[Rfam]
RNA sequence: CUGAAUACUGUAACGGUCCCCUUUAAAAGAACGAGGACUCAGUGCUGAGCUGACAGGAAGCCCCAGGGUUGUCCUACAUGUGGGUGACUCUGUGCUGAAAGCAUGGGAACAGCC
Number, nucleotide and partner (000 for none) at each position: 001c000002u000003g000004a000005a000006u044007a043008c042009u041010g040011u000012a000013a000014c000015g000016g000017u037018c036019c035020c000021c033022u000023u031024u030025a000026a000027a000028a000029g000030a024031a023032c000033g021034a000035g019036g018037a017038c000039u000040c010041a009042g008043u007044g006045c000046u000047g000048a000049g000050c000051u000052g000053a000054c000055a000056g000057g000058a000059a000060g000061c107062c106063c105064c092065a091066g090067g089068g088069u087070u000071g000072u084073c083074c082075u000076a000077c000078a000079u000080g000081u000082g074083g073084g072085u000086g000087a069088c068089u067090c066091u065092g064093u000094g000095c000096u000097g000098a000099a000100a000101g000102c000103a000104u000105g063106g062107g061108a000109a000110c000111a000112g000113c000114c000
RNA: Small nucleolar RNA SNORA65